[Rfam]
RNA sequence: CGCGGUCCUCGGUAGUGGUCUACGGGGUCGUCCAGCGAGAGCCGGACGGACGCCGUGGGCCUCGAUCGAAGACCGGG
Numbered sequence: 001c002g003c004g005g006u007c008c009u010c011g012g013u014a015g016u017g018g019u020c021u022a023c024g025g026g027g028u029c030g031u032c033c034a035g036c037g038a039g040a041g042c043c044g045g046a047c048g049g050a051c052g053c054c055g056u057g058g059g060c061c062u063c064g065a066u067c068g069a070a071g072a073c074c075g076g077g
Stems, first nucleotide, its partner, number of pairs: 001077001003075005009069005017061009027051003

Actino-pnp RNA: a 77-nucleotide RNA sequence from Zhihengliuella halotolerans.
The family's consensus secondary structure is taken from published work.
By type it is a cis-regulatory element.